Annotation:
A member of the RNA family "eL15-Euryarchaeota ribosomal protein leader", 47 nucleotides long. The family's RNA type in Rfam is cis-regulatory leader.

Nucleotides: 047
Stems, first nucleotide, its partner, number of pairs: 001017007018043003026037004
Number, partner (000 for none) and nucleotide at each position: 001017g002016c003015g004014g005013a006012u007011g008000g009000g010000c011007c012006a013005u014004c015003c016002g017001c018043u019042g020041g021000a022000a023000u024000g025000u026037a027036a028035c029034c030000g031000u032000a033000a034029g035028g036027u037026u038000g039000a040000a041020c042019c043018g044000u045000u046000a047000a